[Rfam]
RNA sequence: GGUAGUAGCAAUUAUUCAAAUGAGACCUUUGAAGACUGAAGCGGAGAAGGGUUCCGUGUGAACAGUAAUUGGACACGGGUUAGCCGGUCCUAAGGACGAGAUUUGUUUCUUUGAGAGGAGCUUUGCUCUAGUGUCCAAAAGGGUGUCAGUUUAAAAUCACUGAGCUAGGACGUGGGUAUAAUGUGGUAACACAACUGAACUUGGGUACACAAAGUAUGGCCCCGCGUAGCGUUUUCUUUGCUGUUUAACAGCUUGUCAAUCCCUGGAAAUAGAUCAUCUAGAGAUAGGGAUUGACAGCUGGAAAAGCAUUCUACUAUUUAGAGUGUGCGGUGCGCUGACCUUUGUCCUUGAAACCCCAAGGGAUUCUUAUUAUCCGCACCCCUAGCCGUACCAAAAACCGCAUCAGGUCUCCAAGGUUAUAAGCCUCUGGUCAU
Numbered sequence: 001g002g003u004a005g006u007a008g009c010a011a012u013u014a015u016u017c018a019a020a021u022g023a024g025a026c027c028u029u030u031g032a033a034g035a036c037u038g039a040a041g042c043g044g045a046g047a048a049g050g051g052u053u054c055c056g057u058g059u060g061a062a063c064a065g066u067a068a069u070u071g072g073a074c075a076c077g078g079g080u081u082a083g084c085c086g087g088u089c090c091u092a093a094g095g096a097c098g099a100g101a102u103u104u105g106u107u108u109c110u111u112u113g114a115g116a117g118g119a120g121c122u123u124u125g126c127u128c129u130a131g132u133g134u135c136c137a138a139a140a141g142g143g144u145g146u147c148a149g150u151u152u153a154a155a156a157u158c159a160c161u162g163a164g165c166u167a168g169g170a171c172g173u174g175g176g177u178a179u180a181a182u183g184u185g186g187u188a189a190c191a192c193a194a195c196u197g198a199a200c201u202u203g204g205g206u207a208c209a210c211a212a213a214g215u216a217u218g219g220c221c222c223c224g225c226g227u228a229g230c231g232u233u234u235u236c237u238u239u240g241c242u243g244u245u246u247a248a249c250a251g252c253u254u255g256u257c258a259a260u261c262c263c264u265g266g267a268a269a270u271a272g273a274u275c276a277u278c279u280a281g282a283g284a285u286a287g288g289g290a291u292u293g294a295c296a297g298c299u300g301g302a303a304a305a306g307c308a309u310u311c312u313a314c315u316a317u318u319u320a321g322a323g324u325g326u327g328c329g330g331u332g333c334g335c336u337g338a339c340c341u342u343u344g345u346c347c348u349u350g351a352a353a354c355c356c357c358a359a360g361g362g363a364u365u366c367u368u369a370u371u372a373u374c375c376g377c378a379c380c381c382c383u384a385g386c387c388g389u390a391c392c393a394a395a396a397a398c399c400g401c402a403u404c405a406g407g408u409c410u411c412c413a414a415g416g417u418u419a420u421a422a423g424c425c426u427c428u429g430g431u432c433a434u
Base pairs, nucleotide, nucleotide: 015033016032017031018030019029020028034432035431036430037429043412044411045410046409049392050391054078055077056076057075058074059073063071064070085388086387087386089142090141094136095135096112098110100109101108116129117128118127146163147162148161149160150159166384167383168382169381172379173378174377176374182193183192184191185190200360201359202358203357204356205355209345210344211343212342214340217337218336219335220334222330223329224328226244227243228242229241230240249300250299251298252297253296260290261289262288263287264286265285270280271279272278307325308324309323310322311321312320313319398407399406414426415425416424417423
RNA: Eukaryotic large subunit ribosomal RNA, nucleotides 1408 to 1841
Organism: Ascogregarina taiwanensis